[Rfam]
RNA: HIV Rev response element
RNA sequence: ACAGUGGCAAGACAGAAAGACAGACAGAAAAGAGCAGCCUUCGGUCUGGGAGCACUGUUCCUUGGGUUCCUGGGUGCAGCAGGAAGCACUAUGGGCGCAGCGGCAGUAACGCUGACGGUACAGGCCCGACAGUUGCUGUCGGGUAUAGUGCAGCAACAGAAUAAUCUGUUGAAAGCAAUAGAGGCUCAACAGCACCUAUUGCAACUAUCAAUCUGGGGAGUAAAACAACUACAAGCCAGAUUGCUUGCUGUAGAAAGGUACCUGCAGGAUCAGCAGAUUCUGGGCCUGUGGGGCUGCUCUGGAAAGGCUGUCUGUUAUACCACGGUGCCUUGGA
Numbered sequence: 001a002c003a004g005u006g007g008c009a010a011g012a013c014a015g016a017a018a019g020a021c022a023g024a025c026a027g028a029a030a031a032g033a034g035c036a037g038c039c040u041u042c043g044g045u046c047u048g049g050g051a052g053c054a055c056u057g058u059u060c061c062u063u064g065g066g067u068u069c070c071u072g073g074g075u076g077c078a079g080c081a082g083g084a085a086g087c088a089c090u091a092u093g094g095g096c097g098c099a100g101c102g103g104c105a106g107u108a109a110c111g112c113u114g115a116c117g118g119u120a121c122a123g124g125c126c127c128g129a130c131a132g133u134u135g136c137u138g139u140c141g142g143g144u145a146u147a148g149u150g151c152a153g154c155a156a157c158a159g160a161a162u163a164a165u166c167u168g169u170u171g172a173a174a175g176c177a178a179u180a181g182a183g184g185c186u187c188a189a190c191a192g193c194a195c196c197u198a199u200u201g202c203a204a205c206u207a208u209c210a211a212u213c214u215g216g217g218g219a220g221u222a223a224a225a226c227a228a229c230u231a232c233a234a235g236c237c238a239g240a241u242u243g244c245u246u247g248c249u250g251u252a253g254a255a256a257g258g259u260a261c262c263u264g265c266a267g268g269a270u271c272a273g274c275a276g277a278u279u280c281u282g283g284g285c286c287u288g289u290g291g292g293g294c295u296g297c298u299c300u301g302g303a304a305a306g307g308c309u310g311u312c313u314g315u316u317a318u319a320c321c322a323c324g325g326u327g328c329c330u331u332g333g334a
Stems, first nucleotide, its partner, number of pairs: 002333001004331001006329004019320001020315001022313003025307001031300009046283006053276001059269004063264005068258002071255001076251006086151006092122002096117002098114005124144009154171007174245006182206002187201003191197002212235001214233002217230002
Dot-bracket structure: .(.(.((((.........((.((((.....(((((((((......((((((.(.....(((((((((((.(....((((((....((((((((..(((((((.......))))).))...)).(((((((((...))))))))).))))))..(((((((....)))))))..((((((..((...(((.((...)).)))...)).....(.((.((..........)).)).)....))))))))))))...).)).))))).))))......).))))))........)))))))))......)...))).)....).....)))).).).